[Rfam]
RNA sequence: CCCAGCGAUGAAUCGCUGGGCUAUUUUCGAGCGUCCCGGCGGGACG
Number, nucleotide and partner (000 for none) at each position: 001c020002c019003c018004a017005g016006c015007g014008a013009u000010g000011a000012a000013u008014c007015g006016c005017u004018g003019g002020g001021c000022u000023a000024u000025u000026u000027u000028c000029g000030a000031g000032c000033g045034u044035c043036c042037c041038g000039g000040c000041g037042g036043g035044a034045c033046g000

The record is a 46-nucleotide RNA sequence, which matches "Acido-Lenti-1 RNA" in Rfam. The sequence is in the family's curated seed alignment.